[Rfam]
RNA sequence: GACCGGAUAAGGCGUUCACGCCGUAUCCGGCAUACAGUGCCCGAUGCGACGCUGCCGCGUCUUAUCGGGCC
Numbered sequence: 001g002a003c004c005g006g007a008u009a010a011g012g013c014g015u016u017c018a019c020g021c022c023g024u025a026u027c028c029g030g031c032a033u034a035c036a037g038u039g040c041c042c043g044a045u046g047c048g049a050c051g052c053u054g055c056c057g058c059g060u061c062u063u064a065u066c067g068g069g070c071c
Stems, first nucleotide, its partner, number of pairs: 003030006011022004039070008048061005
RNA: Nucleoid-associated noncoding RNA 4 (CssrE)